Burkholderia RNA 11: a 122-nucleotide sequence from Comamonas terrigena. The family's consensus secondary structure was predicted with RNAfold. From the family's description: Co-purified with Hfq, expression confirmed by Northern blot. Predicted target marZ. Overlaps coding sequence. Rfam links the family to the GO term protein binding.
[Rfam]
RNA sequence: GCAAUCUGCAACUGGCACGCCAGCAGCCGGUGGUGUUCCGUUCGUUGCUGGGCAUCAGCUGGAUGUGGUUUUUCGGCGCCGUGUUCCUGGCCCAGUUCCCCAGUUUUGCCAAGGAAGUGCUG
Number, nucleotide and partner (000 for none) at each position: 001g000002c000003a000004a000005u000006c000007u000008g000009c000010a049011a000012c047013u000014g000015g043016c000017a041018c040019g039020c000021c000022a037023g036024c035025a034026g000027c032028c000029g000030g000031u000032g027033g000034u025035g024036u023037u022038c000039c019040g018041u017042u000043c015044g000045u000046u000047g012048c000049u010050g000051g121052g120053c119054a118055u117056c000057a000058g000059c113060u112061g000062g110063a105064u000065g000066u000067g099068g098069u000070u000071u095072u094073u000074c000075g091076g000077c089078g088079c000080c000081g086082u000083g000084u000085u000086c081087c000088u078089g077090g000091c075092c000093c000094a072095g071096u000097u000098c068099c067100c000101c000102a000103g000104u000105u063106u000107u000108g000109c000110c062111a000112a060113g059114g000115a000116a000117g055118u054119g053120c052121u051122g000
Taxonomically the source falls in Comamonas (Bacteria, Pseudomonadati, Pseudomonadota, Comamonadaceae).